Annotation:
Rfam assigns this 114-nucleotide sequence from Peptostreptococcus sp. D1 to the family "FMN riboswitch aptamer (RFN element)".

Nucleotides: 114
Base pairs, nucleotide, nucleotide: 004111005110006109007108008107009106010105017029018028019027031094032093033084034083035048036047037046038045043082044081064080065079066078067077068076086097087096088095
Number, partner (000 for none) and nucleotide at each position: 001000u002000a003000u004111u005110u006109u007108c008107u009106u010105c011000a012000g013000g014000g015000c016000a017029g018028g019027g020000u021000g022000u023000g024000a025000u026000u027019c028018c029017c030000u031094a032093c033084c034083g035048g036047c037046g038045g039000u040000a041000a042000a043082g044081c045038c046037c047036g048035c049000g050000a051000g052000c053000g054000u055000u056000a057000u058000g059000c060000a061000u062000g063000a064080u065079u066078u067077g068076g069000u070000g071000a072000a073000a074000u075000u076068c077067c078066a079065a080064a081044g082043c083034c084033g085000a086097c087096a088095g089000u090000a091000u092000a093032g094031u095088c096087u097086g098000g099000a100000u101000g102000a103000g104000a105010g106009a107008a108007g109006a110005g111004a112000u113000u114000u